RNA: SAM (S-adenosyl methionine) riboswitch aptamer
RNA sequence: GGUCAUGAGCACCAGCGUUGAAGCCCCGGCUAGCUGGUCGGCAACCCUCCACGUCGUGAUGAGCGACACCGCGGCGGGGUGCUCCGGGUGACGACCGGGUCGUGUGUCGCAUUCGGGCACGACAAGCGCGGAUU
Number, nucleotide and partner (000 for none) at each position: 001g096002g095003u094004c093005a000006u000007g000008a000009g039010c000011a038012c037013c036014a035015g034016c033017g000018u000019u000020g000021a000022a031023g030024c000025c000026c000027c000028g000029g000030c023031u022032a000033g016034c015035u014036g013037g012038u011039c009040g083041g082042c081043a000044a000045c079046c078047c077048u000049c074050c073051a000052c000053g000054u000055c000056g000057u000058g000059a000060u000061g000062a000063g000064c000065g000066a000067c000068a000069c000070c000071g000072c000073g050074g049075c000076g000077g047078g046079g045080u000081g042082c041083u040084c000085c000086g000087g000088g000089u000090g000091a000092c000093g004094a003095c002096c001097g000098g000099g123100u122101c121102g120103u119104g118105u117106g000107u116108c115109g114110c000111a000112u000113u000114c109115g108116g107117g105118c104119a103120c102121g101122a100123c099124a000125a000126g000127c000128g000129c000130g000131g000132a000133u000134u000